[Rfam]
RNA sequence: UUGGUGUGAAAGACAUGGGUAGUGAGAUGUCGGUCCUUCAGAUUCACCUUAUUACCCUGUCUUUUGCAUCAAG
Numbered sequence: 001u002u003g004g005u006g007u008g009a010a011a012g013a014c015a016u017g018g019g020u021a022g023u024g025a026g027a028u029g030u031c032g033g034u035c036c037u038u039c040a041g042a043u044u045c046a047c048c049u050u051a052u053u054a055c056c057c058u059g060u061c062u063u064u065u066g067c068a069u070c071a072a073g
Stems, first nucleotide, its partner, number of pairs: 008065008017057003021053006028046002
A member of the RNA family "mir-71 microRNA precursor family" from Pomacea canaliculata, 73 nucleotides long. Its family is annotated with miRNA-mediated post-transcriptional gene silencing and RISC complex in the Gene Ontology. The base pairs follow the family's consensus structure, which was predicted with RNAalifold. A search with the family's covariance model found it, with a score of 60 bits.